RNA sequence: AGUUAACUACCGUCGGUAGUUAACUGCAGCCGAUUUUUUCAAACUUCGACAGUUAACUGCCGAAGGACAU
Numbered sequence: 001a002g003u004u005a006a007c008u009a010c011c012g013u014c015g016g017u018a019g020u021u022a023a024c025u026g027c028a029g030c031c032g033a034u035u036u037u038u039u040c041a042a043a044c045u046u047c048g049a050c051a052g053u054u055a056a057c058u059g060c061c062g063a064a065g066g067a068c069a070u
Base pairs, nucleotide, nucleotide: 010066011065013063014062015061016060017059018058019057020056021055022054023053024052025051026050
Overview: A member of the RNA family "MIR2629 microRNA precursor family" from Medicago truncatula, 70 nucleotides long.